[Rfam]
RNA sequence: GCACAUCUAUCUACAUCAAUCCACAUGUGUUGAGGUGGAUUUGAGUGAAAAUUAGUUUGAGUUCCACUUCAAUCUACUUCAACACAUGUGGAUUGAGGUUGAUACAUGU
Numbered sequence: 001g002c003a004c005a006u007c008u009a010u011c012u013a014c015a016u017c018a019a020u021c022c023a024c025a026u027g028u029g030u031u032g033a034g035g036u037g038g039a040u041u042u043g044a045g046u047g048a049a050a051a052u053u054a055g056u057u058u059g060a061g062u063u064c065c066a067c068u069u070c071a072a073u074c075u076a077c078u079u080c081a082a083c084a085c086a087u088g089u090g091g092a093u094u095g096a097g098g099u100u101g102a103u104a105c106a107u108g109u
Stems, first nucleotide, its partner, number of pairs: 004108003008104004013099002016096017035077007043069001045067003

Rfam assigns this 109-nucleotide RNA from Miscanthus lutarioriparius to the family "MIR5565 microRNA precursor family".
Lineage of the source: Eukaryota > Poales > Panicoideae > Andropogoneae > Miscanthus.